[Rfam]
Nucleotides: 038
Stems, first nucleotide, its partner, number of pairs: 003018001005016004020035006
Number, partner (000 for none) and nucleotide at each position: 001000u002000u003018a004000g005016u006015c007014g008013g009000a010000u011000c012000c013008c014007u015006g016005a017000g018003u019000u020035u021034u022033u023032g024031g025030a026000a027000u028000g029000c030025u031024c032023c033022a034021a035020a036000u037000u038000c